Source information:
A member of the RNA family "mir-219 microRNA precursor family" from Scophthalmus maximus, 81 nucleotides long. The literature on the family includes a 2003 paper in Science by Lim et al., "Vertebrate microRNA genes". The organism belongs to Scophthalmus, within Eukaryota. Rfam 15.1 lists 1,318 matches to the family in 774 species.
RNA sequence: GUAGCUGCUGAUUGUCCAAACGCAAUUCUUGUGAAAUUUCAAAUAUCAACCCGAGAAUUGUGCAUGGACAUCUGUUGCUGG
Number, nucleotide and partner (000 for none) at each position: 001g000002u080003a079004g078005c077006u000007g075008c000009u000010g072011a071012u070013u000014g069015u068016c067017c066018a065019a000020a000021c062022g061023c060024a059025a058026u057027u056028c055029u054030u053031g052032u000033g000034a000035a000036a000037u000038u000039u000040c000041a000042a000043a000044u000045a000046u000047c000048a000049a000050c000051c000052c031053g030054a029055g028056a027057a026058u025059u024060g023061u022062g021063c000064a000065u018066g017067g016068a015069c014070a012071u011072c010073u000074g000075u007076u000077g005078c004079u003080g002081g000